[Rfam]
RNA sequence: CUUGCAGAGAUUGUUGGCAUUCUGUCCACCUCCUCCCUCUCUCUAAAAAAUGAGAGUUUUUCGAUUUUAAUGCAUCGUGAGGAGGUGGGCAUCCUGCCAACCACACUCUGUGGG
Dot-bracket structure: .............((((((...(((((((((((((...........................................)))))))))))))...))))))..............
Numbered sequence: 001c002u003u004g005c006a007g008a009g010a011u012u013g014u015u016g017g018c019a020u021u022c023u024g025u026c027c028a029c030c031u032c033c034u035c036c037c038u039c040u041c042u043c044u045a046a047a048a049a050a051u052g053a054g055a056g057u058u059u060u061u062c063g064a065u066u067u068u069a070a071u072g073c074a075u076c077g078u079g080a081g082g083a084g085g086u087g088g089g090c091a092u093c094c095u096g097c098c099a100a101c102c103a104c105a106c107u108c109u110g111u112g113g114g
Stems, first nucleotide, its partner, number of pairs: 014100006023091013
The family of this 114-nucleotide sequence from Amborella trichopoda is "MIR394 microRNA precursor family". Gene Ontology terms of the family: RISC complex and miRNA-mediated post-transcriptional gene silencing. The source organism's lineage runs through Eukaryota, Spermatophyta, Magnoliopsida, Amborellales and Amborella.